[Rfam]
Nucleotides: 097
Stems, first nucleotide, its partner, number of pairs: 002092006013081004018077004026071002
Number, partner (000 for none) and nucleotide at each position: 001000g002092g003091g004090u005089c006088a007087g008000c009000u010000a011000u012000a013081g014080c015079u016078c017000a018077g019076c020075g021074g022000u023000u024000c025000c026071u027070u028000c029000a030000c031000u032000c033000a034000u035000u036000u037000c038000u039000u040000g041000c042000a043000a044000a045000c046000a047000a048000a049000u050000a051000a052000a053000g054000u055000c056000u057000c058000u059000c060000c061000g062000g063000a064000g065000g066000u067000u068000c069000a070027a071026g072000a073000c074021c075020c076019g077018c078016g079015g080014g081013c082000g083000c084000u085000u086000u087007c088006u089005g090004a091003c092002c093000u094000u095000u096000u097000a
Rfam assigns this 97-nucleotide RNA sequence from Xenopus tropicalis to the family "Vault RNA". The family's RNA type in Rfam is non-coding RNA gene. Pairs were carried over by alignment from the consensus structure, which is taken from published work. It scores 72 bits against the family's covariance model.